[Rfam]
RNA sequence: CGGGGGCCCGCAGUCCCCCCGUCAGACGGUCCCCCGUCCAAGCACUGC
Numbered sequence: 001c002g003g004g005g006g007c008c009c010g011c012a013g014u015c016c017c018c019c020c021g022u023c024a025g026a027c028g029g030u031c032c033c034c035c036g037u038c039c040a041a042g043c044a045c046u047g048c
Stems, first nucleotide, its partner, number of pairs: 001021006010048005025038005
RNA: chrB-b RNA